The record is a 58-nucleotide sequence from Prosthecodimorpha hirschii, which matches "terC RNA" in Rfam. It is annotated as a cis-regulatory element. The match comes from Rfam's covariance-model search (63 bits).
RNA sequence: GAACCAGGCCGGGCCCCUCUGGCGGUUCGUUCGCGAACCGCGAUGUCGGACUGGACAU
Dot-bracket structure: .....((.((((.........((((((((....))))))))....)))).))......